[Rfam]
The record is a 57-nucleotide RNA, which matches "S4-Clostridia ribosomal protein leader" in Rfam. A reference for the family is Eckert and Weinberg (2020), "Discovery of 20 novel ribosomal leader candidates in bacteria and archaea", BMC Microbiol. The sequence is in the family's curated seed alignment. The family's RNA type in Rfam is cis-regulatory leader.

RNA sequence: GAAAGGUUGUGUUUUAGCGCAUGACUGGAUGCGUUCAUACCGAGCAUCCCAAUUAGG
Numbered sequence: 001g002a003a004a005g006g007u008u009g010u011g012u013u014u015u016a017g018c019g020c021a022u023g024a025c026u027g028g029a030u031g032c033g034u035u036c037a038u039a040c041c042g043a044g045c046a047u048c049c050c051a052a053u054u055a056g057g
Stems, first nucleotide, its partner, number of pairs: 005026008027049006